[Rfam]
Annotation:
Rfam assigns this 55-nucleotide sequence from Hepatovirus ahepa to the family "HepA virus 3'-terminal pseudoknot". The family's consensus secondary structure is taken from published work. Lineage of the source: Viruses > Riboviria > Pisuviricota > Picornavirales > Hepatovirus ahepa.
RNA sequence: UUAAACAAAUUUUCUUAAAAUUUCUGAGGUUUGUUUAUUUCUUUUAUCAGUAAAU
Numbered sequence: 001u002u003a004a005a006c007a008a009a010u011u012u013u014c015u016u017a018a019a020a021u022u023u024c025u026g027a028g029g030u031u032u033g034u035u036u037a038u039u040u041c042u043u044u045u046a047u048c049a050g051u052a053a054a055u
Stems, first nucleotide, its partner, number of pairs: 002037010021054003024050004